[Rfam]
RNA sequence: UUACUGGACGGAUUAGCUAUUGAACUGUUUUGUCACUCUCUGUCAAAGAACAAAUUGUUCUCUGUCAGAGAGGGACAGAACAGUUCAAUAGUUAAUCCAUUCAGUAAC
Number, nucleotide and partner (000 for none) at each position: 001u107002u106003a105004c104005u103006g102007g000008a000009c000010g000011g097012a096013u095014u094015a093016g092017c091018u090019a089020u088021u087022g086023a085024a084025c083026u082027g081028u080029u069030u068031u067032g066033u000034c064035a063036c000037u000038c000039u000040c000041u000042g000043u000044c000045a000046a000047a000048g000049a059050a058051c057052a056053a000054a000055u000056u052057g051058u050059u049060c000061u000062c000063u035064g034065u000066c032067a031068g030069a029070g000071a000072g000073g000074g000075a000076c000077a000078g000079a000080a028081c027082a026083g025084u024085u023086c022087a021088a020089u019090a018091g017092u016093u015094a014095a013096u012097c011098c000099a000100u000101u000102c006103a005104g004105u003106a002107a001108c000